[Rfam]
RNA sequence: CCGAGCUCGACCCGACACAAUAUUCUGCUGCGAUAUUGUGCGACCUGCAGUGUCAGUCGAGCUCGG
Numbered sequence: 001c002c003g004a005g006c007u008c009g010a011c012c013c014g015a016c017a018c019a020a021u022a023u024u025c026u027g028c029u030g031c032g033a034u035a036u037u038g039u040g041c042g043a044c045c046u047g048c049a050g051u052g053u054c055a056g057u058c059g060a061g062c063u064c065g066g
Base pairs, nucleotide, nucleotide: 001066002065003064004063005062006061008059009058010057011056019037020036021035022034023033024032042054043053044052
The family of this 66-nucleotide RNA from Lophiostoma macrostomum is "bZIP non canonical Hac1/Xbp1 intron".
Rfam describes the family as follows. bZIP intron RNA is a non-canonical intron that was first reported in HAC1 gene in yeast and XBP1 gene in Metazoa.
The family's RNA type in Rfam is small RNA.
On this family, see Hooks and Griffiths-Jones, RNA Biol 2011: "Conserved RNA structures in the non-canonical Hac1/Xbp1 intron".
Taxonomically the source falls in Lophiostoma macrostomum (Eukaryota, Ascomycota, saccharomyceta, Lophiostoma).
The base pairs follow the family's consensus structure, which was predicted with RNAfold.